RNA sequence: GUGCCGUGAUGUUAAACUAUCAACACAUCAUUCUGAAGAAGAAUUGUGUGGCAAGCUUCUGGGACUGAGCACC
Numbered sequence: 001g002u003g004c005c006g007u008g009a010u011g012u013u014a015a016a017c018u019a020u021c022a023a024c025a026c027a028u029c030a031u032u033c034u035g036a037a038g039a040a041g042a043a044u045u046g047u048g049u050g051g052c053a054a055g056c057u058u059c060u061g062g063g064a065c066u067g068a069g070c071a072c073c
Stems, first nucleotide, its partner, number of pairs: 001072004
RNA: Small nucleolar RNA SNORD63